[Rfam]
RNA sequence: AUGCAAGUGAUGAGGAUUAUUAUUGAAUUAUAUGAAGCUUGCAGAGAUCAUAUUGCGAGCUGUGUUGCACCUCAUAUACUUCCAUGACUCUGAUGCAU
Number, nucleotide and partner (000 for none) at each position: 001a098002u097003g096004c095005a094006a000007g000008u000009g000010a000011u000012g000013a000014g000015g000016a000017u000018u000019a000020u000021u000022a000023u000024u000025g000026a000027a000028u000029u000030a000031u000032a000033u000034g000035a000036a000037g060038c059039u058040u057041g056042c055043a054044g053045a000046g000047a000048u000049c000050a000051u000052a000053u044054u043055g042056c041057g040058a039059g038060c037061u000062g000063u000064g000065u000066u000067g000068c000069a000070c000071c000072u000073c000074a000075u000076a000077u000078a000079c000080u000081u000082c000083c000084a000085u000086g000087a000088c000089u000090c000091u000092g000093a000094u005095g004096c003097a002098u001

Rfam assigns this 98-nucleotide RNA from Acer yangbiense to the family "Small nucleolar RNA R72". The family's RNA type in Rfam is C/D-box small nucleolar RNA. On this family, see Chen et al., Nucleic Acids Res 2003: "The high diversity of snoRNAs in plants: identification and comparative study of 120 snoRNA genes from Oryza sativa". Gene Ontology terms of the family: nucleolus and RNA processing. NCBI's taxonomy places the organism under Eukaryota, Streptophytina, Spermatophyta, Hippocastanoideae, Acer.